[Rfam]
RNA sequence: GGACGUGCCUCUGGAGAGACUCAAAGGAGCACCGAAGGGGAAAGCCAAUUUUUUUGGUGAAACUCUCAGGUAAAAGGACAGAGGAUUUUCA
Numbered sequence: 001g002g003a004c005g006u007g008c009c010u011c012u013g014g015a016g017a018g019a020c021u022c023a024a025a026g027g028a029g030c031a032c033c034g035a036a037g038g039g040g041a042a043a044g045c046c047a048a049u050u051u052u053u054u055u056g057g058u059g060a061a062a063c064u065c066u067c068a069g070g071u072a073a074a075a076g077g078a079c080a081g082a083g084g085a086u087u088u089u090c091a
Stems, first nucleotide, its partner, number of pairs: 008084006020029003031071003034067002038065003044058004
Description: This 91-nucleotide sequence from Anaerosolibacter carboniphilus belongs to the Rfam family "Glycine riboswitch aptamer". From the family's description: This family represents the bacterial glycine riboswitch. The match comes from Rfam's covariance-model search (65 bits). The organism belongs to Anaerosolibacter, within Bacteria.